RNA: bip internal ribosome entry site (IRES)
Organism: Pan troglodytes
RNA sequence: CGCCGGCCGAGACGGCACAGACAGACCGACCGAUUGGGGUGUUUCCUGAAUGUGAGAGGUAAGCGCCGCGGCCUGCAUUUCCAGACCUGCCCUUCGCCUGGUUCGUGGCGCCUUGUGACCCCUGCCACCUGCAAGUCGGUAACCGCGCUGCGCUCCUGUGCUGUGGCCUGUGGCUGGACUGCCUGGGAUGCCCUGCCUGCUGCUGCCCGACUGGCUGGCAAGAUGAAGCUCUCCCUGGUGGCCGCGAUGCUGCUG
Number, nucleotide and partner (000 for none) at each position: 001c000002g000003c000004c244005g243006g242007c241008c240009g239010a000011g000012a000013c000014g000015g161016c160017a159018c158019a157020g156021a000022c000023a000024g000025a000026c000027c000028g000029a000030c000031c000032g000033a000034u124035u000036g122037g121038g120039g119040u118041g000042u000043u000044u000045c000046c000047u000048g000049a000050a000051u000052g000053u000054g000055a000056g000057a000058g000059g000060u000061a000062a000063g111064c110065g109066c108067c107068g106069c105070g104071g103072c000073c000074u000075g000076c000077a000078u000079u000080u000081c000082c000083a000084g000085a000086c000087c000088u000089g000090c000091c000092c000093u000094u000095c000096g000097c000098c000099u000100g000101g000102u000103u071104c070105g069106u068107g067108g066109c065110g064111c063112c000113u000114u000115g000116u000117g000118a040119c039120c038121c037122c036123u000124g034125c000126c000127a000128c000129c000130u000131g000132c000133a000134a000135g000136u000137c000138g000139g000140u000141a000142a000143c000144c000145g000146c000147g000148c000149u000150g000151c000152g000153c000154u000155c000156c020157u019158g018159u017160g016161c015162u000163g000164u176165g175166g174167c173168c172169u000170g000171u000172g168173g167174c166175u165176g164177g000178a000179c000180u000181g000182c000183c000184u000185g000186g000187g000188a000189u000190g000191c000192c000193c000194u000195g000196c000197c000198u000199g000200c000201u000202g000203c000204u000205g000206c000207c000208c000209g000210a000211c000212u000213g000214g000215c000216u000217g000218g000219c000220a000221a000222g000223a000224u000225g000226a000227a000228g000229c000230u000231c000232u000233c000234c000235c000236u000237g000238g000239u009240g008241g007242c006243c005244g004245c000246g000247a000248u000249g000250c000251u000252g000253c000254u000255g000